[Rfam]
Shown here is a 318-nucleotide sequence from Octodon degus, a member of the family "7SK RNA".

RNA sequence: GGAUGUGAGGGCGAUCUGGCUGCGACAUUUGUCACCUCAUUGAUCGCCAGGGUUGAUUCGGCUGAUCUGGCUGGCUAGGCGGGUGUCCCCUUCCUCCCCCAAUGAUCCAUGUGUGUCCCUCCUGAAGCUGCGCGCUCAGUGGAAGAGGGUGACCACCCCCGAUAGAGGAGGUACGUUCCUCGGUCAAGGGUAUACGAGUAGCUGCGUUCCCCUGCUAGAACCUCCAAACAAGCUCUCAAGAAAACAGUGAGAGGAAGAAGGGAAGGAAAAAGAAACUAGAUAACGGCAGACAAAUAAUAUCAAUGGCAUCCUUGGUCU
Number, nucleotide and partner (000 for none) at each position: 001g108002g107003a106004u000005g000006u101007g100008a000009g098010g097011g096012c000013g093014a092015u000016c000017u000018g090019g089020c000021u000022g000023c000024g087025a086026c085027a084028u083029u082030u081031g080032u079033c078034a000035c074036c073037u070038c069039a068040u000041u000042g067043a066044u065045c064046g062047c061048c060049a000050g000051g000052g000053u000054u000055g000056a000057u000058u000059c000060g048061g047062c046063u000064g045065a044066u043067c042068u039069g038070g037071c000072u000073g036074g035075c000076u000077a000078g033079g032080c031081g030082g029083g028084u027085g026086u025087c024088c000089c019090c018091u000092u014093c013094c000095u000096c011097c010098c009099c000100c007101a006102a000103u000104g000105a000106u003107c002108c001109a000110u000111g000112u000113g000114u000115g000116u171117c170118c168119c167120u166121c165122c139123u138124g137125a136126a000127g135128c134129u000130g000131c000132g000133c000134g128135c127136u125137c124138a123139g122140u162141g000142g160143a000144a000145g000146a000147g158148g157149g156150u000151g000152a000153c000154c000155a000156c149157c148158c147159c000160c142161g000162a140163u000164a000165g121166a120167g119168g118169a000170g117171g116172u000173a000174c000175g000176u000177u000178c000179c000180u000181c000182g000183g000184u000185c000186a000187a000188g000189g000190g000191u000192a000193u000194a000195c000196g000197a000198g000199u000200a000201g276202c000203u274204g000205c000206g000207u265208u264209c000210c262211c261212c260213u259214g000215c257216u000217a000218g000219a000220a000221c000222c253223u252224c251225c000226a000227a000228a000229c249230a248231a000232g000233c000234u000235c000236u000237c000238a000239a000240g000241a000242a000243a000244a000245c000246a000247g000248u230249g229250a000251g224252a223253g222254g000255a000256a000257g215258a000259a213260g212261g211262g210263a000264a208265g207266g000267a000268a000269a000270a000271a000272g000273a000274a203275a000276c201277u000278a000279g000280a000281u000282a000283a000284c000285g000286g000287c000288a000289g000290a000291c000292a000293a000294a000295u000296a000297a000298u000299a000300u000301c000302a000303a000304u000305g000306g000307c000308a316309u315310c000311c000312u000313u000314g000315g309316u308317c000318u000
By type it is a non-coding RNA gene. Rfam 15.1 lists 49,373 matches to the family in 668 species. NCBI's taxonomy places the organism under Eukaryota, Vertebrata, Euarchontoglires, Hystricomorpha, Octodon. 7SK was discovered as an abundant small nuclear RNA in the mid-70s but a possible function has only recently been suggested. Two independent studies have found that 7SK RNA binds the CDK9/cyclin T complex (known as elongation factor P-TEFb). P-TEFb activates transcription by phosphorylating the C-terminal domain of RNA polymerase II. This process is negatively regulated by the 7SK RNP. The secondary structure of 7SK RNA shown here was proposed by Wasserman and Steitz on the basis of chemical modification and enzymatic cleavage experiments. This family contains a number of annotated pseudogenes and 7SK derived repeats. The threshold is artificially high to minimise the pseudogene count. The base pairs follow the family's consensus structure, which is taken from published work. A search with the family's covariance model found it, with a score of 263 bits.